[Rfam]
RNA sequence: UAUAUUUGCGCCCUGAUUUAGAGAAAAUCACAUACAUAAAAAUCAUUUAAAACAAUAUUGGCAUG
Numbered sequence: 001u002a003u004a005u006u007u008g009c010g011c012c013c014u015g016a017u018u019u020a021g022a023g024a025a026a027a028u029c030a031c032a033u034a035c036a037u038a039a040a041a042a043u044c045a046u047u048u049a050a051a052a053c054a055a056u057a058u059u060g061g062c063a064u065g
Stems, first nucleotide, its partner, number of pairs: 014030006
Source information
A member of the RNA family "S15-Flavobacteria ribosomal protein leader" from Pricia antarctica, 65 nucleotides long. Rfam classes the family as a cis-regulatory leader. Its Rfam clan is "Ribosomal Protein S15 Leader clan". The organism belongs to Pricia, within Bacteria.